This 368-nucleotide part of an RNA belongs to the Rfam family "Bacterial large subunit ribosomal RNA". The family's consensus secondary structure is taken from published work. A reference for the family is Cannone et al. (2002), "The comparative RNA web (CRW) site: an online database of comparative sequence and structure information for ribosomal, intron, and other RNAs", BMC Bioinformatics.

RNA sequence: GUAAAAAUAGGUAAGAUCCUAUUCGCCGAAAGCAGAAGGGUUUCAUGGCUGGGCUCAACCGCCAUGAGUAAAGUAACGGCCUCUAAGGUUUUUUAAACAAUCGGUUAUUAAUAAAUUAUACCUUACUUGAAAAAGUAGGAUCUAAUUUAUUAAUAACUUUUAGGAUUGGAACUCCGAUAGGAGUAACCGAUGAGAAAAACUAAUUUAAAUAACAAUUUUAAAUUUAUACAUAUCGGUAACGGUAUAGUUAUAAUUUAAAAUUCAGGAAAUGAUUUACCUUAUGCAAUGAUAUAUAUCAUUUGUAUGGGAUUAAUUUUUAACCGUACCCUAAACCGACACUGGUCUGCUGGUAGAAUAUACCAAGGCGU
Numbered sequence: 001g002u003a004a005a006a007a008u009a010g011g012u013a014a015g016a017u018c019c020u021a022u023u024c025g026c027c028g029a030a031a032g033c034a035g036a037a038g039g040g041u042u043u044c045a046u047g048g049c050u051g052g053g054c055u056c057a058a059c060c061g062c063c064a065u066g067a068g069u070a071a072a073g074u075a076a077c078g079g080c081c082u083c084u085a086a087g088g089u090u091u092u093u094u095a096a097a098c099a100a101u102c103g104g105u106u107a108u109u110a111a112u113a114a115a116u117u118a119u120a121c122c123u124u125a126c127u128u129g130a131a132a133a134a135g136u137a138g139g140a141u142c143u144a145a146u147u148u149a150u151u152a153a154u155a156a157c158u159u160u161u162a163g164g165a166u167u168g169g170a171a172c173u174c175c176g177a178u179a180g181g182a183g184u185a186a187c188c189g190a191u192g193a194g195a196a197a198a199a200c201u202a203a204u205u206u207a208a209a210u211a212a213c214a215a216u217u218u219u220a221a222a223u224u225u226a227u228a229c230a231u232a233u234c235g236g237u238a239a240c241g242g243u244a245u246a247g248u249u250a251u252a253a254u255u256u257a258a259a260a261u262u263c264a265g266g267a268a269a270u271g272a273u274u275u276a277c278c279u280u281a282u283g284c285a286a287u288g289a290u291a292u293a294u295a296u297c298a299u300u301u302g303u304a305u306g307g308g309a310u311u312a313a314u315u316u317u318u319a320a321c322c323g324u325a326c327c328c329u330a331a332a333c334c335g336a337c338a339c340u341g342g343u344c345u346g347c348u349g350g351u352a353g354a355a356u357a358u359a360c361c362a363a364g365g366c367g368u
Stems, first nucleotide, its partner, number of pairs: 006023006024367004032347004038327002043067006052060002077323003082107001087102003117319002120316001123313003127309001133301002138292001142283001145280001148276002153270002157266001158179001160177002163174001180240001184235001186233001191228002196219004201214001204212002242263001244261002248257001333342002349361004